[Rfam]
RNA: Coronavirus packaging signal
RNA sequence: AUGUCAUCUUCAGCCAAUCUGACAGCUCUAACCAGAGCCCACAAGGUAAUCUGGGGAGUAAUGUCGGUGGUAAUGAUGCUCUG
Numbered sequence: 001a002u003g004u005c006a007u008c009u010u011c012a013g014c015c016a017a018u019c020u021g022a023c024a025g026c027u028c029u030a031a032c033c034a035g036a037g038c039c040c041a042c043a044a045g046g047u048a049a050u051c052u053g054g055g056g057a058g059u060a061a062u063g064u065c066g067g068u069g070g071u072a073a074u075g076a077u078g079c080u081c082u083g
Stems, first nucleotide, its partner, number of pairs: 008078001010076003014070003021065004026058003032054005038046002